[Rfam]
RNA: Small nucleolar RNA SNORD63
RNA sequence: GUGCUAUGAUGAUGUAUUGUCAACACAUCAUUCUGAAGAAAAGUAUGUGGUGACAUCCUGUUACUGAGCAUA
Numbered sequence: 001g002u003g004c005u006a007u008g009a010u011g012a013u014g015u016a017u018u019g020u021c022a023a024c025a026c027a028u029c030a031u032u033c034u035g036a037a038g039a040a041a042a043g044u045a046u047g048u049g050g051u052g053a054c055a056u057c058c059u060g061u062u063a064c065u066g067a068g069c070a071u072a
Stems, first nucleotide, its partner, number of pairs: 001071004